Description:
A member of the RNA family "Small nucleolar RNA SNORA23" from Nothoprocta ornata, 182 nucleotides long. A search with the family's covariance model found it, with a score of 151 bits.
RNA sequence: GCAGAACUGUGUGCAUAGCUUUCCGUCUGUGUCUAGUGGUAUGGUCUGUUUGUGUUUUGCAUUUAGACUGUACUGCUCACACAAAACCUGUGGCCAAAGAUGAACUUGAGAUCAUAGUACUGGUCUAGUGAUGUCUGAAAGGCAACCUUUCCACUGGCCAGCCUCCAAACUCUCAGACAUCU
Number, nucleotide and partner (000 for none) at each position: 001g000002c000003a000004g000005a000006a000007c000008u000009g000010u000011g000012u000013g091014c090015a089016u000017a000018g000019c000020u000021u000022u000023c000024c000025g000026u000027c000028u000029g000030u083031g082032u081033c000034u079035a000036g077037u075038g074039g073040u072041a071042u070043g000044g068045u067046c066047u065048g064049u000050u000051u061052g060053u059054g000055u000056u000057u000058u000059g053060c052061a051062u000063u000064u048065a047066g046067a045068c044069u000070g042071u041072a040073c039074u038075g037076c000077u036078c000079a034080c000081a032082c031083a030084a000085a000086a000087c000088c000089u015090g014091u013092g000093g000094c000095c000096a000097a000098a000099g000100a000101u000102g000103a000104a000105c000106u000107u175108g174109a173110g172111a171112u000113c000114a000115u000116a000117g000118u000119a000120c161121u160122g159123g158124u157125c156126u000127a155128g154129u153130g152131a000132u144133g143134u142135c141136u000137g000138a000139a000140a000141g135142g134143c133144a132145a000146c000147c000148u000149u000150u000151c000152c130153a129154c128155u127156g125157g124158c123159c122160a121161g120162c000163c000164u000165c000166c000167a000168a000169a000170c000171u111172c110173u109174c108175a107176g000177a000178c000179a000180u000181c000182u000
Rfam classes the family as an H/ACA-box small nucleolar RNA. Pairs were carried over by alignment from the consensus structure, which was predicted with RNAalifold. The organism belongs to Nothoprocta, within Eukaryota. About the family: The members of this family belong to the H/ACA class of snoRNAs which are thought to guide the sites of modification of uridines to pseudouridines. This family includes human snoRNA ACA23 (SNORA23) and mouse snoMBI-1.